Description
A member of the RNA family "BsrC" from Metabacillus indicus, 88 nucleotides long. The family's consensus secondary structure was predicted with CMfinder. A search with the family's covariance model found it, with a score of 79 bits. The family has 29 seed sequences and 572 matches in Rfam 15.1. Rfam describes the family as follows. The 301 nucleotide sequence from Kouji Nakamura has been trimmed to a highly conserved ~85 nucleotide long core to form this family. It is annotated as a small RNA.
[Rfam]
RNA sequence: UGAACACAAAGCAACGAAAGCCCUACCUCUCUCUCGUCCUUGCGGCUCCGAUGACCGCGCCAGCUUGAAUUGAGCUAACAAAAAUCAA
Numbered sequence: 001u002g003a004a005c006a007c008a009a010a011g012c013a014a015c016g017a018a019a020g021c022c023c024u025a026c027c028u029c030u031c032u033c034u035c036g037u038c039c040u041u042g043c044g045g046c047u048c049c050g051a052u053g054a055c056c057g058c059g060c061c062a063g064c065u066u067g068a069a070u071u072g073a074g075c076u077a078a079c080a081a082a083a084a085u086c087a088a
Stems, first nucleotide, its partner, number of pairs: 034068003039063002041059005047053001
Dot-bracket structure: .................................(((..(((((((.(.....).)))))..))..)))....................